[Rfam]
RNA: Mason-Pfizer monkey virus packaging signal
RNA sequence: UGGCGCCCGACGGUGAGAGAUGGAUAAGGGGGGUUUGCGAGGGAAGAGGCGUCUAAUCAUUGGGCCAAAAAAAGCGAAAUUCAGUUCGACAAAGACCACUGCGGGAGCCUGCCGCUCCACUCUUAAAGGUACAGUAGCGCCUAACUAUUGGACAUGAAUUAAGUAAGCAUAAAGUUUUUGUUAAGCAAUUAAAAGAAGCUUUAAAGACACGGGGAAUAAAGGUUAAGAGUAAUGAUCUUUUUAAAUUUUUUGACCUUAUUAAGGACACCUGUCCAU
Numbered sequence: 001u002g003g004c005g006c007c008c009g010a011c012g013g014u015g016a017g018a019g020a021u022g023g024a025u026a027a028g029g030g031g032g033g034u035u036u037g038c039g040a041g042g043g044a045a046g047a048g049g050c051g052u053c054u055a056a057u058c059a060u061u062g063g064g065c066c067a068a069a070a071a072a073a074g075c076g077a078a079a080u081u082c083a084g085u086u087c088g089a090c091a092a093a094g095a096c097c098a099c100u101g102c103g104g105g106a107g108c109c110u111g112c113c114g115c116u117c118c119a120c121u122c123u124u125a126a127a128g129g130u131a132c133a134g135u136a137g138c139g140c141c142u143a144a145c146u147a148u149u150g151g152a153c154a155u156g157a158a159u160u161a162a163g164u165a166a167g168c169a170u171a172a173a174g175u176u177u178u179u180g181u182u183a184a185g186c187a188a189u190u191a192a193a194a195g196a197a198g199c200u201u202u203a204a205a206g207a208c209a210c211g212g213g214g215a216a217u218a219a220a221g222g223u224u225a226a227g228a229g230u231a232a233u234g235a236u237c238u239u240u241u242u243a244a245a246u247u248u249u250u251u252g253a254c255c256u257u258a259u260u261a262a263g264g265a266c267a268c269c270u271g272u273c274c275a276u
Stems, first nucleotide, its partner, number of pairs: 006030003015025001035049002038046001085129002089124001094120001101115004137153001140151002143148001160203003163199002210252008220238006261276001263274004